Notes:
This 191-nucleotide RNA from Umbribacter vaginalis belongs to the Rfam family "FMN riboswitch aptamer (RFN element)". A search with the family's covariance model found it, with a score of 93 bits.
Nucleotides: 191
Stems, first nucleotide, its partner, number of pairs: 003189001005187006017029003031171002033161002035099004102137009141157005163174003
Number, partner (000 for none) and nucleotide at each position: 001000u002000u003189u004000a005187u006186g007185u008184u009183u010182c011000a012000g013000g014000g015000c016000g017029a018028g019027g020000u021000g022000a023000a024000a025000u026000u027019c028018c029017u030000c031171a032170c033161u034160g035099g036098c037097g038096g039000u040000a041000a042000c043000a044000g045000a046000a047000u048000g049000c050000u051000g052000c053000g054000u055000u056000u057000a058000c059000a060000u061000g062000g063000u064000u065000u066000u067000a068000u069000c070000c071000a072000a073000u074000a075000c076000a077000u078000g079000c080000g081000c082000a083000u084000c085000a086000a087000a088000u089000c090000u091000g092000a093000a094000g095000u096038c097037u098036g099035c100000g101000a102137g103136c104135u105134g106133u107132g108131u109130g110129u111000a112000g113000u114000g115000u116000g117000g118000c119000u120000u121000g122000u123000a124000c125000a126000a127000c128000c129110a130109c131108a132107c133106a134105c135104a136103g137102u138000a139000g140000a141157u142156u143155c144154g145153g146000u147000g148000a149000a150000a151000a152000g153145c154144c155143g156142a157141a158000a159000c160034c161033a162000a163174c164173g165172g166000u167000a168000u169000a170032g171031u172165c173164c174163g175000g176000a177000u178000g179000a180000a181000a182010g183009a184008g185007g186006c187005a188000g189003a190000u191000g